[Rfam]
RNA: MIR8008 microRNA precursor family
Organism: Solanum tuberosum
RNA sequence: AUUUCCAGAAAAGCAACGAACAGUGUCCUUUAGUCUGUUGCUUUUCUGGAAUUAU
Numbered sequence: 001a002u003u004u005c006c007a008g009a010a011a012a013g014c015a016a017c018g019a020a021c022a023g024u025g026u027c028c029u030u031u032a033g034u035c036u037g038u039u040g041c042u043u044u045u046c047u048g049g050a051a052u053u054a055u
Base pairs, nucleotide, nucleotide: 001053003051004050005049006048007047008046009045010044011043012042013041014040015039016038017037018036020034021033